[Rfam]
RNA sequence: CAAUACCAUUAGCCUAAGUUUUUUUAUUAAACACGGGGAAACCAAGAUUUUGGGGUGAAUCGCUUUUUGCGUAGGUUAUGCCUUUACCGAACCCGUCAGCUAACCCCGUAGGUAAAAGGAGAGGAUUU
Numbered sequence: 001c002a003a004u005a006c007c008a009u010u011a012g013c014c015u016a017a018g019u020u021u022u023u024u025u026a027u028u029a030a031a032c033a034c035g036g037g038g039a040a041a042c043c044a045a046g047a048u049u050u051u052g053g054g055g056u057g058a059a060u061c062g063c064u065u066u067u068u069g070c071g072u073a074g075g076u077u078a079u080g081c082c083u084u085u086a087c088c089g090a091a092c093c094c095g096u097c098a099g100c101u102a103a104c105c106c107c108g109u110a111g112g113u114a115a116a117a118g119g120a121g122a123g124g125a126u127u128u
Stems, first nucleotide, its partner, number of pairs: 012113003018032003033109006043052002053094003061071003074088003

A member of the RNA family "c-di-AMP riboswitch aptamer (ydaO/yuaA leader)" from Clostridium thailandense, 128 nucleotides long. The match comes from Rfam's covariance-model search (90 bits). Its family is annotated with cyclic-di-AMP binding and regulation of gene expression in the Gene Ontology. Lineage of the source: Bacteria > Bacillota > Clostridia > Clostridiaceae > Clostridium.